The record is a 69-nucleotide RNA from Molothrus ater, which matches "Epstein-Barr virus stable intronic sequence RNA 2" in Rfam. It scores 42 bits against the family's covariance model. For this family Rfam cites "RNA families in Epstein-Barr virus" (Moss et al., RNA Biol, 2014). The pairing is the family consensus, mapped onto this sequence. Taxonomically the source falls in Molothrus (Eukaryota, Amniota, Neognathae, Neoaves).

RNA sequence: GCCCCGGGGAAGGGGGAAGGCUCAGGCGGGGAUCGGGCCCCCGCCUGAGCCUUCCCCCCUCCCCGGGGC
Numbered sequence: 001g002c003c004c005c006g007g008g009g010a011a012g013g014g015g016g017a018a019g020g021c022u023c024a025g026g027c028g029g030g031g032a033u034c035g036g037g038c039c040c041c042c043g044c045c046u047g048a049g050c051c052u053u054c055c056c057c058c059c060u061c062c063c064c065g066g067g068g069c
Stems, first nucleotide, its partner, number of pairs: 001069009012058020